The family of this 148-nucleotide sequence is "EGFOA RNA". It is annotated as a small RNA.
[Rfam]
RNA sequence: AUAUCCCCAGAGGCACUUGUUGAUUGCCACUCAACAAGUGCUAUAUGUCCGUCCGUGUGCUUUGCAAGCAGACAGGAUACAUCUUUGUGUAAAACCAGCAGGUAAAGCACGACCUGGGCUGUUCUCUCUUAUUUAGAGAAGAUGUAUU
Number, nucleotide and partner (000 for none) at each position: 001a000002u000003a000004u000005c000006c118007c117008c116009a115010g114011a000012g000013g000014c000015a000016c000017u000018u000019g000020u000021u000022g000023a000024u000025u000026g000027c000028c000029a000030c000031u000032c000033a000034a000035c000036a000037a000038g000039u000040g000041c000042u000043a000044u000045a000046u000047g000048u000049c000050c000051g113052u112053c000054c111055g110056u109057g108058u070059g069060c068061u067062u066063u000064g000065c000066a062067a061068g060069c059070a058071g000072a000073c000074a000075g000076g148077a147078u146079a145080c144081a143082u142083c141084u000085u000086u000087g095088u094089g000090u000091a000092a000093a000094a088095c087096c000097a123098g122099c121100a120101g119102g000103u000104a000105a000106a000107g000108c057109a056110c055111g054112a052113c051114c010115u009116g008117g007118g006119c101120u100121g099122u098123u097124c000125u000126c000127u000128c000129u000130u000131a000132u000133u000134u000135a000136g000137a000138g000139a000140a000141g083142a082143u081144g080145u079146a078147u077148u076
The match comes from Rfam's covariance-model search (40 bits).